Flavo-1 RNA: a 75-nucleotide RNA from Polaribacter atrinae. NCBI's taxonomy places the organism under Bacteria, Pseudomonadati, Bacteroidota, Flavobacteriaceae, Polaribacter.

Nucleotides: 075
Stems, first nucleotide, its partner, number of pairs: 012067003016063002021058002026053003032048005
Number, partner (000 for none) and nucleotide at each position: 001000g002000u003000u004000u005000u006000g007000c008000g009000u010000u011000a012067g013066g014065g015000a016063u017062u018000g019000c020000a021058g022057c023000g024000a025000u026053a027052u028051c029000c030000u031000u032048u033047u034046u035045a036044c037000u038000u039000u040000u041000u042000c043000a044036g045035u046034a047033a048032a049000a050000a051028g052027a053026u054000a055000u056000a057022g058021c059000g060000g061000a062017a063016a064000g065014c066013c067012c068000g069000a070000c071000c072000u073000u074000u075000g